[Rfam]
Shown here is a 35-nucleotide sequence, a member of the family "DUF805b RNA". Its Rfam clan is "DUF805 clan". Rfam's curators put it in the seed alignment.
RNA sequence: AAGGAGGCAGCCGAAAAUCCUGUAAAGAGUAGGCA
Numbered sequence: 001a002a003g004g005a006g007g008c009a010g011c012c013g014a015a016a017a018u019c020c021u022g023u024a025a026a027g028a029g030u031a032g033g034c035a
Stems, first nucleotide, its partner, number of pairs: 002021004010034003